[Rfam]
RNA sequence: AACCAGUGAUGAUAAUAGAUUCCGCCAAAUGACUGCUCAUGAAAUUAACAGCAUACCGUUCUAUAUACUGAGGUU
Numbered sequence: 001a002a003c004c005a006g007u008g009a010u011g012a013u014a015a016u017a018g019a020u021u022c023c024g025c026c027a028a029a030u031g032a033c034u035g036c037u038c039a040u041g042a043a044a045u046u047a048a049c050a051g052c053a054u055a056c057c058g059u060u061c062u063a064u065a066u067a068c069u070g071a072g073g074u075u
Stems, first nucleotide, its partner, number of pairs: 001075004
Source information: Shown here is a 75-nucleotide RNA sequence from Podarcis muralis, a member of the family "Small nucleolar RNA SNORD47". A search with the family's covariance model found it, with a score of 57 bits. By type it is a C/D-box small nucleolar RNA. For this family Rfam cites "Purified box C/D snoRNPs are able to reproduce site-specific 2'-O-methylation of target RNA in vitro" (Galardi et al., Mol Cell Biol, 2002). The family has 20 seed sequences and 755 matches in Rfam 15.1.